[Rfam]
Rfam assigns this 112-nucleotide sequence from Phycicoccus duodecadis to the family "SAM (S-adenosyl methionine) riboswitch aptamer". Its Rfam clan is "SAM clan".
RNA sequence: GGUCAUGAGUCCCAGCGCCAAACCCCGGUUUGCUGGGCGGCAACCCUCCUCGCGGUGGGGUGCCCCGGGUGAUGACCGGGCCGUCUCCCGACCGGAGCGGCAAGCGCGAUGC
Numbered sequence: 001g002g003u004c005a006u007g008a009g010u011c012c013c014a015g016c017g018c019c020a021a022a023c024c025c026c027g028g029u030u031u032g033c034u035g036g037g038c039g040g041c042a043a044c045c046c047u048c049c050u051c052g053c054g055g056u057g058g059g060g061u062g063c064c065c066c067g068g069g070u071g072a073u074g075a076c077c078g079g080g081c082c083g084u085c086u087c088c089c090g091a092c093c094g095g096a097g098c099g100g101c102a103a104g105c106g107c108g109a110u111g112c
Stems, first nucleotide, its partner, number of pairs: 001077004009038001011037006021030002039064003044060003048055002080101004085097004